[Rfam]
RNA sequence: CUAGUCAUUCCUCUUUCCCUUUUCACUCAUCUCGUCAAUCGAUAAUUGAAUUUCGAAUGACAGAUCAGUGCGCGAGAAGGAAGACUAG
Numbered sequence: 001c002u003a004g005u006c007a008u009u010c011c012u013c014u015u016u017c018c019c020u021u022u023u024c025a026c027u028c029a030u031c032u033c034g035u036c037a038a039u040c041g042a043u044a045a046u047u048g049a050a051u052u053u054c055g056a057a058u059g060a061c062a063g064a065u066c067a068g069u070g071c072g073c074g075a076g077a078a079g080g081a082a083g084a085c086u087a088g
Stems, first nucleotide, its partner, number of pairs: 001088006009081004016077002019074001021072001023070001025069003030063001032062001034061004039056004
Record summary:
Shown here is an 88-nucleotide RNA sequence from Pristionchus pacificus, a member of the family "mir-2238 microRNA precursor family". NCBI's taxonomy places the organism under Eukaryota, Opisthokonta, Diplogasteroidea, Neodiplogasteridae, Pristionchus. Rfam links the family to the GO terms miRNA-mediated post-transcriptional gene silencing and RISC complex. Pairs were carried over by alignment from the consensus structure, which was predicted with RNAalifold. It is one of the family's seed sequences.